Annotation:
A member of the RNA family "SAM (S-adenosyl methionine) riboswitch aptamer" from Flavimobilis marinus, 116 nucleotides long.
RNA sequence: GGUCACGAGUGCCAGCGCGUAGCCCCGGCUUGCUGGCCGGCAACCCUCCUUCCGCGGUGGGGUGCCCCGGGUGAGGACCAGGCCCGCCGUCGUCCGGCGUCGGGCAAGCGCCGAGA
Numbered sequence: 001g002g003u004c005a006c007g008a009g010u011g012c013c014a015g016c017g018c019g020u021a022g023c024c025c026c027g028g029c030u031u032g033c034u035g036g037c038c039g040g041c042a043a044c045c046c047u048c049c050u051u052c053c054g055c056g057g058u059g060g061g062g063u064g065c066c067c068c069g070g071g072u073g074a075g076g077a078c079c080a081g082g083c084c085c086g087c088c089g090u091c092g093u094c095c096g097g098c099g100u101c102g103g104g105c106a107a108g109c110g111c112c113g114a115g116a
Stems, first nucleotide, its partner, number of pairs: 001079004009038001011037006021030002039066003044062003048057002082105005088099004
Taxonomically the source falls in Flavimobilis (Bacteria, Bacillati, Actinomycetota, Micrococcales).